[Rfam]
Source information
This 58-nucleotide RNA sequence from Sphingobium sp. TKS belongs to the Rfam family "nhaA-I RNA".
RNA sequence: GGGUGCCGCGCUCGUUGAGAGUGCAUGGCAGGUUAAUACGCUGGUCGGGCCGCCAACG
Numbered sequence: 001g002g003g004u005g006c007c008g009c010g011c012u013c014g015u016u017g018a019g020a021g022u023g024c025a026u027g028g029c030a031g032g033u034u035a036a037u038a039c040g041c042u043g044g045u046c047g048g049g050c051c052g053c054c055a056a057c058g
Stems, first nucleotide, its partner, number of pairs: 005029004010024002039058002042055004

From the family's description: Acidobacteria, Alphaproteobacteria, Betaproteobacteria and Gammaproteobacteria, Verrucomicrobia, cand. division NC10.
A search with the family's covariance model found it, with a score of 48 bits.
The family's consensus secondary structure is taken from published work.